[Rfam]
MIR824 microRNA precursor family: a 761-nucleotide sequence from Eutrema salsugineum. Pairs were carried over by alignment from the consensus structure, which was predicted with WAR. For this family Rfam cites "A diverse and evolutionarily fluid set of microRNAs in Arabidopsis thaliana" (Rajagopalan et al., Genes Dev, 2006).
RNA sequence: CUUGAGUUGUCUCUCAUGUCUAGACCAUUUGUGAGAAGGGAUUUUUAUUUUAUUUGCACCGUUCACACCACCAAUUUCUAAAUCUGCCAUAAGUAUUAUAUAUGCCCAAGUUAGGAAAAUAGCUUGUUCAACAUAUCACACAACCCUUUUAAUUAAAAACAAUUCCAUAUAUCAGAUGCCUCUACGGCUUGAAAUAUAUUGUUUUCUUAUGUAGUUAUGUAUACUCUUGGAGUAGUUUCUUGUGUAUCUUUAGAUAUUCGCUAGCCGCCUAGGAUUUUUAAGCUACCAAAACGUUAAGAAAUUAGUGAAAUGUUCCCAAACCGCAUUUUUUAAAAAGGUCAGUUUAUAGGUCACAGCCAUUAGAGUCGCACUCACCUCCUUUUUAAGUUGUUUGAUUUCUUCCAUGGUCCAUGAAAAUCUGAUACUUUAGAAGUUAGGUAUAAAGGUAAGUACUUAAGGUGCAUUUCAUGACUUUUCUUGAUGCUGCGUACAUAACUUUUUUCAUUCGUAUCAGCCGGGUUUAGUUCAAGCUGAGAACUCCAAAUCAUAUAGAAUUUGACACUUUGGACAUGCAUUUUGCCUAGUAGAUCUCAAAGUUCUGUCUGGAGUGUCCGAGGUUUUUCCAUGAUAGCUAAGAAUUUUUUAUCUUACACAAUAAACUAUACUAGUUUUCCUAAGAAAAAAAAAUGGGGAAUGGGGAGGUGUUGGGUAAAUUCCCUUCUCAUCGAUGGUCUAGAUUUGCGAGGUGACUCUCAUGGAGG
Numbered sequence: 001c002u003u004g005a006g007u008u009g010u011c012u013c014u015c016a017u018g019u020c021u022a023g024a025c026c027a028u029u030u031g032u033g034a035g036a037a038g039g040g041a042u043u044u045u046u047a048u049u050u051u052a053u054u055u056g057c058a059c060c061g062u063u064c065a066c067a068c069c070a071c072c073a074a075u076u077u078c079u080a081a082a083u084c085u086g087c088c089a090u091a092a093g094u095a096u097u098a099u100a101u102a103u104g105c106c107c108a109a110g111u112u113a114g115g116a117a118a119a120u121a122g123c124u125u126g127u128u129c130a131a132c133a134u135a136u137c138a139c140a141c142a143a144c145c146c147u148u149u150u151a152a153u154u155a156a157a158a159a160c161a162a163u164u165c166c167a168u169a170u171a172u173c174a175g176a177u178g179c180c181u182c183u184a185c186g187g188c189u190u191g192a193a194a195u196a197u198a199u200u201g202u203u204u205u206c207u208u209a210u211g212u213a214g215u216u217a218u219g220u221a222u223a224c225u226c227u228u229g230g231a232g233u234a235g236u237u238u239c240u241u242g243u244g245u246a247u248c249u250u251u252a253g254a255u256a257u258u259c260g261c262u263a264g265c266c267g268c269c270u271a272g273g274a275u276u277u278u279u280a281a282g283c284u285a286c287c288a289a290a291a292c293g294u295u296a297a298g299a300a301a302u303u304a305g306u307g308a309a310a311u312g313u314u315c316c317c318a319a320a321c322c323g324c325a326u327u328u329u330u331u332a333a334a335a336a337g338g339u340c341a342g343u344u345u346a347u348a349g350g351u352c353a354c355a356g357c358c359a360u361u362a363g364a365g366u367c368g369c370a371c372u373c374a375c376c377u378c379c380u381u382u383u384u385a386a387g388u389u390g391u392u393u394g395a396u397u398u399c400u401u402c403c404a405u406g407g408u409c410c411a412u413g414a415a416a417a418u419c420u421g422a423u424a425c426u427u428u429a430g431a432a433g434u435u436a437g438g439u440a441u442a443a444a445g446g447u448a449a450g451u452a453c454u455u456a457a458g459g460u461g462c463a464u465u466u467c468a469u470g471a472c473u474u475u476u477c478u479u480g481a482u483g484c485u486g487c488g489u490a491c492a493u494a495a496c497u498u499u500u501u502u503c504a505u506u507c508g509u510a511u512c513a514g515c516c517g518g519g520u521u522u523a524g525u526u527c528a529a530g531c532u533g534a535g536a537a538c539u540c541c542a543a544a545u546c547a548u549a550u551a552g553a554a555u556u557u558g559a560c561a562c563u564u565u566g567g568a569c570a571u572g573c574a575u576u577u578u579g580c581c582u583a584g585u586a587g588a589u590c591u592c593a594a595a596g597u598u599c600u601g602u603c604u605g606g607a608g609u610g611u612c613c614g615a616g617g618u619u620u621u622u623c624c625a626u627g628a629u630a631g632c633u634a635a636g637a638a639u640u641u642u643u644u645a646u647c648u649u650a651c652a653c654a655a656u657a658a659a660c661u662a663u664a665c666u667a668g669u670u671u672u673c674c675u676a677a678g679a680a681a682a683a684a685a686a687a688u689g690g691g692g693a694a695u696g697g698g699g700a701g702g703u704g705u706u707g708g709g710u711a712a713a714u715u716c717c718c719u720u721c722u723c724a725u726c727g728a729u730g731g732u733c734u735a736g737a738u739u740u741g742c743g744a745g746g747u748g749a750c751u752c753u754c755a756u757g758g759a760g761g
Base pairs, nucleotide, nucleotide: 001760002759003758004752005751006750007749008748009747010746011745012744013743015741016740018738019737020736021735022734023733024732025731026730027729028728029727031725032724033723034722035721036720037719038718039717040716041715043713056705057704058703059702060701072696073695077693078692079691